[Rfam]
RNA sequence: AAUUCCUUUAAUUAAGUUCUGUGAAACUUCAAGGAGUUGCUCAAUUGUUUAUUAUUCACGUUUAAGACUGAUAAAUAAGUGAAGGACUUCGUAUGUUUUACGGAGUCCUUUUUUAU
Numbered sequence: 001a002a003u004u005c006c007u008u009u010a011a012u013u014a015a016g017u018u019c020u021g022u023g024a025a026a027c028u029u030c031a032a033g034g035a036g037u038u039g040c041u042c043a044a045u046u047g048u049u050u051a052u053u054a055u056u057c058a059c060g061u062u063u064a065a066g067a068c069u070g071a072u073a074a075a076u077a078a079g080u081g082a083a084g085g086a087c088u089u090c091g092u093a094u095g096u097u098u099u100a101c102g103g104a105g106u107c108c109u110u111u112u113u114u115a116u
Stems, first nucleotide, its partner, number of pairs: 003036006014029005045078010056067002081111013

Rfam assigns this 116-nucleotide RNA from Holzapfeliella floricola to the family "PyrR binding site". The family's consensus secondary structure is taken from published work. The organism belongs to Holzapfeliella floricola, within Bacteria.